[Rfam]
RNA sequence: CCCGUUCGGGUCCGUGGUUGCGCCGGGCCGACUCCGCUCCGGAGUUCAGCCUGGCUAGCCGAUGCCAGCCGCAGGCGAAACGGUCCACGUAAGGCGACUCUUGGUCGACCGAUCACGGUGCGGCUUAGAGGUAAGUCCUGCCCUCCCGGGGGUCCAGAUGUCCCCCGCAAGAGGAGAAGGGCAGUAGUGGCGAGUGAGCUGCGAACCCCUCAGCAGGCGGAUGUGGGGACGAAGACCAGGUCGGCCGGACGGG
Numbered sequence: 001c002c003c004g005u006u007c008g009g010g011u012c013c014g015u016g017g018u019u020g021c022g023c024c025g026g027g028c029c030g031a032c033u034c035c036g037c038u039c040c041g042g043a044g045u046u047c048a049g050c051c052u053g054g055c056u057a058g059c060c061g062a063u064g065c066c067a068g069c070c071g072c073a074g075g076c077g078a079a080a081c082g083g084u085c086c087a088c089g090u091a092a093g094g095c096g097a098c099u100c101u102u103g104g105u106c107g108a109c110c111g112a113u114c115a116c117g118g119u120g121c122g123g124c125u126u127a128g129a130g131g132u133a134a135g136u137c138c139u140g141c142c143c144u145c146c147c148g149g150g151g152g153u154c155c156a157g158a159u160g161u162c163c164c165c166c167g168c169a170a171g172a173g174g175a176g177a178a179g180g181g182c183a184g185u186a187g188u189g190g191c192g193a194g195u196g197a198g199c200u201g202c203g204a205a206c207c208c209c210u211c212a213g214c215a216g217g218c219g220g221a222u223g224u225g226g227g228g229a230c231g232a233a234g235a236c237c238a239g240g241u242c243g244g245c246c247g248g249a250c251g252g253g
Stems, first nucleotide, its partner, number of pairs: 001253009012244003015238005062224003065075001067125007084118002089113001093109001095107004116231001137217005142174004178210004187202002
Dot-bracket structure: (((((((((..((((((((..........................................((([.(((((((.]........((...(...(.((((.....)))).)...)..[)))))))))...........(((((((((.........................))))...((((.....((............))....))))..)))))....)))......]..)))))...))))))))))))
This 253-nucleotide sequence from Microbispora sp. ATCC PTA-5024 belongs to the Rfam family "raiA RNA". Pairs were carried over by alignment from the consensus structure, which is taken from published work. NCBI's taxonomy places the organism under Bacteria, Bacillati, Actinomycetes, Streptosporangiaceae, Microbispora. The family's RNA type in Rfam is riboswitch.